[Rfam]
RNA: mir-9229 microRNA precursor family
RNA sequence: GAGGUACCCUUCGGGGGCAGGACUUGCUUCAGUAGGGCUUUGGUGUUCACUGAGUCUGCCUCUUGAAUGUGUCACU
Number, nucleotide and partner (000 for none) at each position: 001g075002a000003g073004g072005u071006a070007c069008c000009c000010u066011u065012c000013g000014g062015g061016g060017g059018c058019a057020g000021g056022a055023c054024u000025u000026g000027c000028u000029u053030c052031a051032g050033u049034a000035g047036g046037g044038c043039u000040u000041u000042g000043g038044u037045g000046u036047u035048c000049a033050c032051u031052g030053a029054g023055u022056c021057u019058g018059c017060c016061u015062c014063u000064u000065g011066a010067a000068u000069g007070u006071g005072u004073c003074a000075c001076u000